RNA: Small nucleolar RNA R21
RNA sequence: AAUCCCAAUGAUGACUUAUUAAGAUUAAAAAUGUUAAAAGUAGUGACUGAUAUCUUUUGAUGAAAUUUUAGCUCUGAGGGAUU
Dot-bracket structure: ((((((.......................................................................))))))